[Rfam]
The family of this 464-nucleotide part of an RNA from Lepeophtheirus salmonis is "Eukaryotic large subunit ribosomal RNA". It is one of the family's seed sequences.
RNA sequence: UAGUAUAAUGUAGAUAAGGGAAUUCGGCAAAUUAGAUCCGUAACUUCGGGAAAAGGAUUGGCUCUGAGGAUUGAGUGCCAUGCCAAAGUAUAUAGAACUUGGAUCUGAUCGAGUUUCUCCUCACGGGGACAUUCUUUCGGAGAAGAGGAAAGUUGCGGCGGCUAACACAAUUAACAAUCAACUCAGAACUGAAGCGGACAAGGGGAAUCCGACUGUUUAAUAAAAACAUAGCUUUGUGAUGGCCUGAAAAGGUGUUGACACAAAGUGAUUUCUGCCCAGUGCUUUGAAUGUGAAUAUGAAUUAAUUUAUAGAAGCUCAGGUAAACGGCGGGAGUAACUAUGACUCUCUUAAGGUAGCCAAAUGCCUCGUCAUUUAAUUAGUGACGCGCAUGAAUGGAUCAAUGAGAUUCCCACUGUCCCUAUCUACGCGCUAGCGAACCUACUGCCAAGGGAACGGGCUUGGAA
Numbered sequence: 001u002a003g004u005a006u007a008a009u010g011u012a013g014a015u016a017a018g019g020g021a022a023u024u025c026g027g028c029a030a031a032u033u034a035g036a037u038c039c040g041u042a043a044c045u046u047c048g049g050g051a052a053a054a055g056g057a058u059u060g061g062c063u064c065u066g067a068g069g070a071u072u073g074a075g076u077g078c079c080a081u082g083c084c085a086a087a088g089u090a091u092a093u094a095g096a097a098c099u100u101g102g103a104u105c106u107g108a109u110c111g112a113g114u115u116u117c118u119c120c121u122c123a124c125g126g127g128g129a130c131a132u133u134c135u136u137u138c139g140g141a142g143a144a145g146a147g148g149a150a151a152g153u154u155g156c157g158g159c160g161g162c163u164a165a166c167a168c169a170a171u172u173a174a175c176a177a178u179c180a181a182c183u184c185a186g187a188a189c190u191g192a193a194g195c196g197g198a199c200a201a202g203g204g205g206a207a208u209c210c211g212a213c214u215g216u217u218u219a220a221u222a223a224a225a226a227c228a229u230a231g232c233u234u235u236g237u238g239a240u241g242g243c244c245u246g247a248a249a250a251g252g253u254g255u256u257g258a259c260a261c262a263a264a265g266u267g268a269u270u271u272c273u274g275c276c277c278a279g280u281g282c283u284u285u286g287a288a289u290g291u292g293a294a295u296a297u298g299a300a301u302u303a304a305u306u307u308a309u310a311g312a313a314g315c316u317c318a319g320g321u322a323a324a325c326g327g328c329g330g331g332a333g334u335a336a337c338u339a340u341g342a343c344u345c346u347c348u349u350a351a352g353g354u355a356g357c358c359a360a361a362u363g364c365c366u367c368g369u370c371a372u373u374u375a376a377u378u379a380g381u382g383a384c385g386c387g388c389a390u391g392a393a394u395g396g397a398u399c400a401a402u403g404a405g406a407u408u409c410c411c412a413c414u415g416u417c418c419c420u421a422u423c424u425a426c427g428c429g430c431u432a433g434c435g436a437a438c439c440u441a442c443u444g445c446c447a448a449g450g451g452a453a454c455g456g457g458c459u460u461g462g463a464a
Stems, first nucleotide, its partner, number of pairs: 001432004009427008018418003035059005044049001060190002063187006069179005075168003080163001082162002084158001088154001091151001098145003104141005111134004116129005191195001203411007210403002214228003231266008242253004270397003274328003279325002281321004286317001290315002296309005329347006348352001368384006445462005
Dot-bracket structure: ((((....((((((((.(((..............(((((....(....).....)))))((.(((((((((((.(((..(.(((...(..(......(((...(((((..((((.(((((....))))).))))..))))).))).....)..)...)..)))..)))......)))))..)))))).))(...).......(((((((((..(((.........)))..((((((((...((((....)))).....))))))))...(((.(((..((((((.(...((....(((((....)))))....)).)))))..)))))((((((.......))))))(...)...............((((((.....))))))..........)))....)).)))))))....))).)))))))).))))............(((((........)))))..
The family's consensus secondary structure is taken from published work. The literature on the family includes a 2001 paper in Science by Yusupov et al., "Crystal structure of the ribosome at 5.5 A resolution".